[Rfam]
RNA sequence: CCCAUUAUGGGAUAAAUGUGAGCUCAGGAGCGAUGAAUAAAUCCUUUCAUCACUCCUCAUUACUCCCGAGCUCACAUUUAUUUCAAAAUGA
Numbered sequence: 001c002c003c004a005u006u007a008u009g010g011g012a013u014a015a016a017u018g019u020g021a022g023c024u025c026a027g028g029a030g031c032g033a034u035g036a037a038u039a040a041a042u043c044c045u046u047u048c049a050u051c052a053c054u055c056c057u058c059a060u061u062a063c064u065c066c067c068g069a070g071c072u073c074a075c076a077u078u079u080a081u082u083u084c085a086a087a088a089u090g091a
Base pairs, nucleotide, nucleotide: 003090004089005088006087008085009084012081013080014079015078016077017076018075019074020073021072022071023070024069025068027066028065029064030063033060034059035058036057
About this RNA: This 91-nucleotide sequence from Glycine max belongs to the Rfam family "MIR1523 microRNA precursor family". The base pairs follow the family's consensus structure, which was predicted with RNAalifold.